The family of this 134-nucleotide RNA sequence from Castor canadensis is "Small nucleolar RNA SNORA48". From the family's description: The snoRNA ACA 48 has been identified to guide pseudouridylation of the residue U3797 in the 28S rRNA subunit.
[Rfam]
RNA sequence: UGUCCCUGACCUGGGUAGAGUGGCAUCAAGUUGGUGGUGCUCAUCUCACACCAGCCAGGGGCAAAACAACCCCUUGUUUACUCCAGCAUGGCUUUGGUCUAUCCCCAUGCCUGGUUCAUGCCUUGGACACAUGG
Numbered sequence: 001u002g003u004c005c006c007u008g009a010c011c012u013g014g015g016u017a018g019a020g021u022g023g024c025a026u027c028a029a030g031u032u033g034g035u036g037g038u039g040c041u042c043a044u045c046u047c048a049c050a051c052c053a054g055c056c057a058g059g060g061g062c063a064a065a066a067c068a069a070c071c072c073c074u075u076g077u078u079u080a081c082u083c084c085a086g087c088a089u090g091g092c093u094u095u096g097g098u099c100u101a102u103c104c105c106c107a108u109g110c111c112u113g114g115u116u117c118a119u120g121c122c123u124u125g126g127a128c129a130c131a132u133g134g
Stems, first nucleotide, its partner, number of pairs: 001063008011054004018047003022041006075129006090122003095118003099114003104109001
The literature on the family includes a 1997 paper in J Mol Biol by Ofengand and Bakin, "Mapping to nucleotide resolution of pseudouridine residues in large subunit ribosomal RNAs from representative eukaryotes, prokaryotes, archaebacteria, mitochondria and chloroplasts".